[Rfam]
RNA sequence: CUGCAACCAGUUAGGCCAGCCAGGCUCCCUUCCUUGUUGGAGCCCAGAGUGUGAUGGCUGUGAACAGCAGCCUCCUUGGCCGUGUGCCAGCCUGUUGGUACUGGUUGCUCUAAGGGGCUUUGGAGACAGUC
Numbered sequence: 001c002u003g004c005a006a007c008c009a010g011u012u013a014g015g016c017c018a019g020c021c022a023g024g025c026u027c028c029c030u031u032c033c034u035u036g037u038u039g040g041a042g043c044c045c046a047g048a049g050u051g052u053g054a055u056g057g058c059u060g061u062g063a064a065c066a067g068c069a070g071c072c073u074c075c076u077u078g079g080c081c082g083u084g085u086g087c088c089a090g091c092c093u094g095u096u097g098g099u100a101c102u103g104g105u106u107g108c109u110c111u112a113a114g115g116g117g118c119u120u121u122g123g124a125g126a127c128a129g130u131c
Base pairs, nucleotide, nucleotide: 002053003052004051005050020047025042026041027040028039078119079118080117088107089106090105091104092103
Annotation:
This 131-nucleotide RNA from Ictidomys tridecemlineatus belongs to the Rfam family "Small nucleolar RNA SNORA70". Rfam describes the family as follows. snoRNA U70 seems to be exclusive to mammals and is a member of the H/ACA class of snoRNA which contain H (ANANNA) and ACA box motifs. The literature on the family includes a 2000 paper in IUBMB Life by Charette and Gray, "Pseudouridine in RNA: what, where, how, and why". Pairs were carried over by alignment from the consensus structure, which was predicted with PFOLD. It is annotated as an H/ACA-box small nucleolar RNA.